[Rfam]
RNA sequence: UAGUGAGGUAGAGGCGCAAUAUUUAACAGUCCUUAGUGGAGCGUGAGGAAGCUAUGAUUCUAAGGAGAAGGAAAUAUUGCCGAAGCUUAUAAUAUACCCUCUAUAUUAUUUGCUGGGUCUGCAGUUAAGAGCUGCAGGACUGUCUCAAUAGACCACCCAGUUUAUUGAGUUGUGCUAUCUCAUUU
Numbered sequence: 001u002a003g004u005g006a007g008g009u010a011g012a013g014g015c016g017c018a019a020u021a022u023u024u025a026a027c028a029g030u031c032c033u034u035a036g037u038g039g040a041g042c043g044u045g046a047g048g049a050a051g052c053u054a055u056g057a058u059u060c061u062a063a064g065g066a067g068a069a070g071g072a073a074a075u076a077u078u079g080c081c082g083a084a085g086c087u088u089a090u091a092a093u094a095u096a097c098c099c100u101c102u103a104u105a106u107u108a109u110u111u112g113c114u115g116g117g118u119c120u121g122c123a124g125u126u127a128a129g130a131g132c133u134g135c136a137g138g139a140c141u142g143u144c145u146c147a148a149u150a151g152a153c154c155a156c157c158c159a160g161u162u163u164a165u166u167g168a169g170u171u172g173u174g175c176u177a178u179c180u181c182a183u184u185u
Stems, first nucleotide, its partner, number of pairs: 006180006016080009031065006038058001084114003089109007115141002118138008144169009